Shown here is a 64-nucleotide sequence from Comamonas terrigena, a member of the family "nhaA-I RNA". From the family's description: Acidobacteria, Alphaproteobacteria, Betaproteobacteria and Gammaproteobacteria, Verrucomicrobia, cand. division NC10. It is annotated as a riboswitch. Taxonomically the source falls in Comamonas (Bacteria, Pseudomonadati, Pseudomonadota, Betaproteobacteria). The match comes from Rfam's covariance-model search (40 bits).
[Rfam]
RNA sequence: GGGUGCCCGCCACAUGCGGUGGUGACGGCAGGUGAAUCUUCAUGCGCAGGUCGGGCCGCCGGCG
Numbered sequence: 001g002g003g004u005g006c007c008c009g010c011c012a013c014a015u016g017c018g019g020u021g022g023u024g025a026c027g028g029c030a031g032g033u034g035a036a037u038c039u040u041c042a043u044g045c046g047c048a049g050g051u052c053g054g055g056c057c058g059c060c061g062g063c064g
Base pairs, nucleotide, nucleotide: 005029006028007027008024009023010022011021012020045064046063047062049060050059051058